[Rfam]
RNA sequence: AACUGGGUCCCGCGCGGCGAAAACUUCCGAACCGUGUCAGGUCCUGACGGAAGCAGCACUAAGGAAGACCUUUCGGGCGACGCGGGGAAGCCUGGCUUGG
Numbered sequence: 001a002a003c004u005g006g007g008u009c010c011c012g013c014g015c016g017g018c019g020a021a022a023a024c025u026u027c028c029g030a031a032c033c034g035u036g037u038c039a040g041g042u043c044c045u046g047a048c049g050g051a052a053g054c055a056g057c058a059c060u061a062a063g064g065a066a067g068a069c070c071u072u073u074c075g076g077g078c079g080a081c082g083c084g085g086g087g088a089a090g091c092c093u094g095g096c097u098u099g100g
Base pairs, nucleotide, nucleotide: 004094005093006092007091008090009086010085011084012083013082014081015077018075019074020073021072022071024067025066026065027064028063034059035058036057037056042051043050044049